[Rfam]
RNA sequence: AUACUUACCUUAAGAUAUCAGAGGAGAUCAAGAAGUCCUACUGAUCAAACACGCACUUUCAAUGGUAGAAGGAUGUUACGCAUUUAUCUUUGAACUAUAAUAGUUCACUGAAUUCAUUGAUGAAAACUCCUUGGUCACAUACACAUACGUUGCGGAAGGCAUGUUUGCUGACGUUUCCGUUCCCUUGUUUCAAUUAUCGGUUAUUCCCGUGAUUCCUUUUGGAAUCUGGGGGAUUCAACCGAUUUUUGAGGCCCUUUGUUUCUUCUGCCUGGAGAAGUUUGACACCAAAUUCAAAUUGGUGUUAGGGGAGCUGAGACCUUUCAGAAGAGAGCAUUACGAAGGCAUUCUUUUUAAUGUACACCCCUCUAGUGCGCUGUUCAAUCUUUUAAAUGGCUGAUUCGAAUGAACUUUUAGUUUAUGAUGGAGGUAUAGCUGUUGGGAUUGUUCGGUCAGGGUUGCAUAUUUGGAGAUGUGCUCUUUUGAGCAGUCUUGGUGUUGCUCAUUGUCGUAGUUUAUGAGAAAAAUUCUGGAAGGUUUUGGUAGGAACGGGUGGAUCUUAUAAUUUUUGAUUUGUUUU
Numbered sequence: 001a002u003a004c005u006u007a008c009c010u011u012a013a014g015a016u017a018u019c020a021g022a023g024g025a026g027a028u029c030a031a032g033a034a035g036u037c038c039u040a041c042u043g044a045u046c047a048a049a050c051a052c053g054c055a056c057u058u059u060c061a062a063u064g065g066u067a068g069a070a071g072g073a074u075g076u077u078a079c080g081c082a083u084u085u086a087u088c089u090u091u092g093a094a095c096u097a098u099a100a101u102a103g104u105u106c107a108c109u110g111a112a113u114u115c116a117u118u119g120a121u122g123a124a125a126a127c128u129c130c131u132u133g134g135u136c137a138c139a140u141a142c143a144c145a146u147a148c149g150u151u152g153c154g155g156a157a158g159g160c161a162u163g164u165u166u167g168c169u170g171a172c173g174u175u176u177c178c179g180u181u182c183c184c185u186u187g188u189u190u191c192a193a194u195u196a197u198c199g200g201u202u203a204u205u206c207c208c209g210u211g212a213u214u215c216c217u218u219u220u221g222g223a224a225u226c227u228g229g230g231g232g233a234u235u236c237a238a239c240c241g242a243u244u245u246u247u248g249a250g251g252c253c254c255u256u257u258g259u260u261u262c263u264u265c266u267g268c269c270u271g272g273a274g275a276a277g278u279u280u281g282a283c284a285c286c287a288a289a290u291u292c293a294a295a296u297u298g299g300u301g302u303u304a305g306g307g308g309a310g311c312u313g314a315g316a317c318c319u320u321u322c323a324g325a326a327g328a329g330a331g332c333a334u335u336a337c338g339a340a341g342g343c344a345u346u347c348u349u350u351u352u353a354a355u356g357u358a359c360a361c362c363c364c365u366c367u368a369g370u371g372c373g374c375u376g377u378u379c380a381a382u383c384u385u386u387u388a389a390a391u392g393g394c395u396g397a398u399u400c401g402a403a404u405g406a407a408c409u410u411u412u413a414g415u416u417u418a419u420g421a422u423g424g425a426g427g428u429a430u431a432g433c434u435g436u437u438g439g440g441a442u443u444g445u446u447c448g449g450u451c452a453g454g455g456u457u458g459c460a461u462a463u464u465u466g467g468a469g470a471u472g473u474g475c476u477c478u479u480u481u482g483a484g485c486a487g488u489c490u491u492g493g494u495g496u497u498g499c500u501c502a503u504u505g506u507c508g509u510a511g512u513u514u515a516u517g518a519g520a521a522a523a524a525u526u527c528u529g530g531a532a533g534g535u536u537u538u539g540g541u542a543g544g545a546a547c548g549g550g551u552g553g554a555u556c557u558u559a560u561a562a563u564u565u566u567u568g569a570u571u572u573g574u575u576u577u
Base pairs, nucleotide, nucleotide: 010562011561012560013557014556015555017045018044019043020042021041022039023038024037025036046167047166048165049164050163051162053160054159056158057157058156059155060154074149075148076147172548173547174546175545176544177543181309182308183307184306185305186304187252188251189250190249191248192247193246197242198241199240200239201238211226212225213224214223215222216221262277263276264275265274266273282302283301284300285299286298287297288296506518507517508516509515510514
The family of this 577-nucleotide RNA from Saccharomyces kudriavzevii is "Yeast U1 spliceosomal RNA". Rfam describes the family as follows. U1 is a small nuclear RNA (snRNA) component of the spliceosome (involved in pre-mRNA splicing). Its 5' end forms complementary base pairs with the 5' splice junction, thus defining the 5' donor site of an intron. By type it is a spliceosomal small nuclear RNA. The source organism's lineage runs through Eukaryota, Saccharomycotina, Saccharomycetes, Saccharomycetales and Saccharomyces kudriavzevii. Rfam links the family to the GO terms U1 snRNP, pre-mRNA 5'-splice site binding and mRNA 5'-splice site recognition.